[Rfam]
Nucleotides: 054
Stems, first nucleotide, its partner, number of pairs: 013043001014041003020036006
Number, partner (000 for none) and nucleotide at each position: 001000a002000a003000u004000g005000a006000c007000a008000u009000g010000a011000a012000u013043u014041g015040u016039a017000a018000g019000u020036u021035g022034c023033u024032c025031u026000g027000g028000a029000u030000a031025a032024g033023a034022g035021c036020a037000u038000c039016u040015g041014c042000c043013a044000a045000a046000u047000c048000c049000c050000a051000g052000a053000a054000a